[Rfam]
RNA sequence: GCAUGGGUUUGGGUUAUGGCAGGCCUGUCCCCCGGGCUCUCUCAUGGCGCCCCAUGCCAGAGCAAACUGGGGCCUUGAGCCAUUGCCUGCCUCUACCAUAGGCAGCAGGCCCUGAAAAAAUAAAAAAUUA
Number, nucleotide and partner (000 for none) at each position: 001g057002c056003a055004u054005g052006g051007g050008u049009u000010u000011g000012g000013g000014u047015u046016a045017u044018g043019g042020c000021a040022g039023g038024c036025c035026u000027g000028u000029c000030c000031c000032c000033c000034g000035g025036g024037c000038u023039c022040u021041c000042u019043c018044a017045u016046g015047g014048c000049g008050c007051c006052c005053c000054a004055u003056g002057c001058c000059a000060g000061a000062g000063c000064a000065a000066a000067c000068u000069g000070g000071g000072g121073c000074c000075u000076u000077g000078a000079g000080c000081c114082a113083u000084u000085g000086c109087c108088u104089g103090c102091c101092u100093c000094u000095a000096c000097c000098a000099u000100a092101g091102g090103c089104a088105g000106c000107a000108g087109g086110c000111c000112c000113u082114g081115a000116a000117a000118a000119a000120a000121u072122a000123a000124a000125a000126a000127a000128u000129u000130a000
Small nucleolar RNA SNORA42/SNORA80 family: a 130-nucleotide sequence from Pipistrellus kuhlii. By type it is an H/ACA-box small nucleolar RNA. The base pairs follow the family's consensus structure, which was predicted with RNAalifold. Rfam 15.1 lists 1,535 matches to the family in 183 species. Rfam describes the family as follows. The members of this family belong to the H/ACA class of snoRNAs that guide the sites of modification of uridines to pseudouridines. Human ACA42 (SNORA42) was cloned from HeLa cells by immunoprecipitation with anti-GAR1 antibody. Its is predicted to guide the pseudouridylation of residues U109 and U572 of 18S rRNA. ACA42 shares the same host gene with ACA26, ACA46, ACA50. A reference for the family is Schattner et al. (2006), "A computational screen for mammalian pseudouridylation guide H/ACA RNAs", RNA. Gene Ontology terms of the family: RNA processing and nucleolus. Taxonomically the source falls in Pipistrellus (Eukaryota, Eumetazoa, Craniata, Amniota).